mir-184 microRNA precursor family: an 81-nucleotide sequence from Gouania willdenowi.
Rfam 15.1 lists 948 matches to the family in 823 species.
Gene Ontology terms of the family: gene silencing by miRNA and RISC complex.
RNA sequence: UUGAGCCCAUCUCCUUAUCACUUUUCCAGCCCGGCUUUUCAUGAGGUGUUGGACGGAGAACUGAUAAGGGAAUGUGUUCAA
Dot-bracket structure: ...........(((((((((.((((((..((...................))..)))))).)))))))))...........
The base pairs follow the family's consensus structure, which was predicted with PFOLD. Taxonomically the source falls in Gouania (Eukaryota, Craniata, Neopterygii, Osteoglossocephalai).